[Rfam]
RNA: Streptococcus sRNA SpR18
Organism: Anaerococcus prevotii
RNA sequence: UCCAAUAGUCACAGAAGAUUAAAAAACUGUAACUUAGAUUAAAACGGGAACAUUUGUAAAAAAGAAUAAACUAAAUAAUAGUUCCAAGUACUUUACAUUUGAAAGAAAAACAAAGACCGUGGUUUAAAACUGU
Numbered sequence: 001u002c003c004a005a006u007a008g009u010c011a012c013a014g015a016a017g018a019u020u021a022a023a024a025a026a027c028u029g030u031a032a033c034u035u036a037g038a039u040u041a042a043a044a045c046g047g048g049a050a051c052a053u054u055u056g057u058a059a060a061a062a063a064g065a066a067u068a069a070a071c072u073a074a075a076u077a078a079u080a081g082u083u084c085c086a087a088g089u090a091c092u093u094u095a096c097a098u099u100u101g102a103a104a105g106a107a108a109a110a111c112a113a114a115g116a117c118c119g120u121g122g123u124u125u126a127a128a129a130c131u132g133u
Base pairs, nucleotide, nucleotide: 007034008033009032011030012029013028014027038125044120045119046118047117052067053066054065055064082103085101086100087099088098089097